mir-8/mir-141/mir-200 microRNA precursor family: a 70-nucleotide RNA from Oryzias latipes. The sequence is in the family's curated seed alignment.

RNA sequence: GGAUCCAUCUUACCUGACAGUGAUGGACUGUACAGCUGUUGCUCUAACACUGUCUGGUAACGAUGUUUCC
Numbered sequence: 001g002g003a004u005c006c007a008u009c010u011u012a013c014c015u016g017a018c019a020g021u022g023a024u025g026g027a028c029u030g031u032a033c034a035g036c037u038g039u040u041g042c043u044c045u046a047a048c049a050c051u052g053u054c055u056g057g058u059a060a061c062g063a064u065g066u067u068u069c070c
Base pairs, nucleotide, nucleotide: 002069003068006065007064008063009062010060011059012058013057014056016054017053018052019051020050021049022048024046025045026044027043
Rfam links the family to the GO terms RISC complex and miRNA-mediated post-transcriptional gene silencing. The family is grouped with related families in Rfam's "mir-8 microRNA precursor clan". For this family Rfam cites "Identification of novel genes coding for small expressed RNAs" (Lagos-Quintana et al., Science, 2001). Lineage of the source: Eukaryota > Bilateria > Craniata > Clupeocephala > Oryzias.